[Rfam]
RNA sequence: CCGAGAUAGGGGUACAAAUCUUGCCACUGGCAUUUCCCUGGACCUUAGCGAUGAUGGGCAACCUAGCGACGACUCUCGGCGUGAGGGUGGUGCGUUCUGAUUCGAACAGAGACCACCCAAGC
Numbered sequence: 001c002c003g004a005g006a007u008a009g010g011g012g013u014a015c016a017a018a019u020c021u022u023g024c025c026a027c028u029g030g031c032a033u034u035u036c037c038c039u040g041g042a043c044c045u046u047a048g049c050g051a052u053g054a055u056g057g058g059c060a061a062c063c064u065a066g067c068g069a070c071g072a073c074u075c076u077c078g079g080c081g082u083g084a085g086g087g088u089g090g091u092g093c094g095u096u097c098u099g100a101u102u103c104g105a106a107c108a109g110a111g112a113c114c115a116c117c118c119a120a121g122c
Stems, first nucleotide, its partner, number of pairs: 001079006007072001009070001010045004015040002022032004048067002056063002083122001085118007098104002
This 122-nucleotide RNA belongs to the Rfam family "Flavobacterium-1 RNA". The family's consensus secondary structure is taken from published work.